[Rfam]
RNA sequence: GGGUCUGUCAGCGAGCGCUGGCGGAGGACAAUCCGGAUGGUCGAGCCGCCAUCCG
Numbered sequence: 001g002g003g004u005c006u007g008u009c010a011g012c013g014a015g016c017g018c019u020g021g022c023g024g025a026g027g028a029c030a031a032u033c034c035g036g037a038u039g040g041u042c043g044a045g046c047c048g049c050c051a052u053c054c055g
Stems, first nucleotide, its partner, number of pairs: 005024008034055004039050003
The record is a 55-nucleotide RNA sequence, which matches "nhaA-I RNA" in Rfam.
Rfam classes the family as a riboswitch.
It is one of the family's seed sequences.
About the family: Acidobacteria, Alphaproteobacteria, Betaproteobacteria and Gammaproteobacteria, Verrucomicrobia, cand. division NC10.
Pairs were carried over by alignment from the consensus structure, which is taken from published work.